[Rfam]
RNA sequence: UUGCGGUGCAUUGUAGUUGCAUUGCAUGCCUACUAAACUGUGCAGUGCUUCUGCAGUGCAACCGCAA
Numbered sequence: 001u002u003g004c005g006g007u008g009c010a011u012u013g014u015a016g017u018u019g020c021a022u023u024g025c026a027u028g029c030c031u032a033c034u035a036a037a038c039u040g041u042g043c044a045g046u047g048c049u050u051c052u053g054c055a056g057u058g059c060a061a062c063c064g065c066a067a
Stems, first nucleotide, its partner, number of pairs: 001067004006063001007060010019048001021046007
Record summary: Rfam assigns this 67-nucleotide RNA from Haemaphysalis longicornis to the family "mir-33 microRNA precursor family". It scores 69 bits against the family's covariance model.